The record is a 75-nucleotide RNA from Phrynocephalus forsythii, which matches "Small nucleolar RNA SNORD59" in Rfam. The literature on the family includes a 2002 paper in Mol Cell Biol by Galardi et al., "Purified box C/D snoRNPs are able to reproduce site-specific 2'-O-methylation of target RNA in vitro". The source organism's lineage runs through Eukaryota, Deuterostomia, Gnathostomata, Sarcopterygii and Phrynocephalus. The match comes from Rfam's covariance-model search (82 bits). Clan: SNORD59 clan.
RNA sequence: CCUUCCUUGAUGAUCAAUACAUGAUGACUUUCGUUCUUCUGAGUUUGCUGAAGUCAUAUUUAUGAUCUGAGAAGG
Numbered sequence: 001c002c003u004u005c006c007u008u009g010a011u012g013a014u015c016a017a018u019a020c021a022u023g024a025u026g027a028c029u030u031u032c033g034u035u036c037u038u039c040u041g042a043g044u045u046u047g048c049u050g051a052a053g054u055c056a057u058a059u060u061u062a063u064g065a066u067c068u069g070a071g072a073a074g075g
Stems, first nucleotide, its partner, number of pairs: 001075003005071001